[Rfam]
RNA sequence: CGCAUUCACCAGGGGGGUCCCGCAAGGGGCUGAGAGUCUGCUGAGCUUUUUCGAAAGCAGCGCAGUGACCCGUUGAACCUGAUCCAGUUCAUACUGGCGUAGGGACGGUGCGAGCGCUGCAAU
Numbered sequence: 001c002g003c004a005u006u007c008a009c010c011a012g013g014g015g016g017g018u019c020c021c022g023c024a025a026g027g028g029g030c031u032g033a034g035a036g037u038c039u040g041c042u043g044a045g046c047u048u049u050u051u052c053g054a055a056a057g058c059a060g061c062g063c064a065g066u067g068a069c070c071c072g073u074u075g076a077a078c079c080u081g082a083u084c085c086a087g088u089u090c091a092u093a094c095u096g097g098c099g100u101a102g103g104g105a106c107g108g109u110g111c112g113a114g115c116g117c118u119g120c121a122a123u
Base pairs, nucleotide, nucleotide: 007110008109009108010107012071013070014069016066017030018029019028020027021026038065039064040063041062078103079102080101081100084097085096086095087094
Record summary: Rfam assigns this 123-nucleotide RNA sequence from Rhizobium sp. PDO1-076 to the family "TPP riboswitch aptamer (THI element)". The family's consensus secondary structure is taken from published work.